[Rfam]
RNA sequence: UGAUGCCAUCGCAACUGGCGUGUAGAUGGGUCACCAUCGGGGAGCGACACAGACGCAGAUUGGCCGAACGCCUGGGCCACCUGC
Numbered sequence: 001u002g003a004u005g006c007c008a009u010c011g012c013a014a015c016u017g018g019c020g021u022g023u024a025g026a027u028g029g030g031u032c033a034c035c036a037u038c039g040g041g042g043a044g045c046g047a048c049a050c051a052g053a054c055g056c057a058g059a060u061u062g063g064c065c066g067a068a069c070g071c072c073u074g075g076g077c078c079a080c081c082u083g084c
Stems, first nucleotide, its partner, number of pairs: 004052001009047004015041002017072005026037004061079005